The record is a 76-nucleotide RNA from Crocodylus porosus, which matches "Mammalian CPEB3 ribozyme" in Rfam. NCBI's taxonomy places the organism under Eukaryota, Deuterostomia, Craniata, Crocodylia, Crocodylus. The mammalian CPEB3 ribozyme is a self cleaving RNA located in the second intron of the CPEB3 gene which belongs to a family of genes regulating messenger RNA polyadenylation.
RNA sequence: UAUUCAUACCAAAGACCAUAGAGGAAGUGCUCACAGCAUGGCUGUGUCAGAUUUGAACAAAUCUGCAUAUUCUUCU
Numbered sequence: 001u002a003u004u005c006a007u008a009c010c011a012a013a014g015a016c017c018a019u020a021g022a023g024g025a026a027g028u029g030c031u032c033a034c035a036g037c038a039u040g041g042c043u044g045u046g047u048c049a050g051a052u053u054u055g056a057a058c059a060a061a062u063c064u065g066c067a068u069a070u071u072c073u074u075c076u
Stems, first nucleotide, its partner, number of pairs: 013043002016041002020076007027039003048065007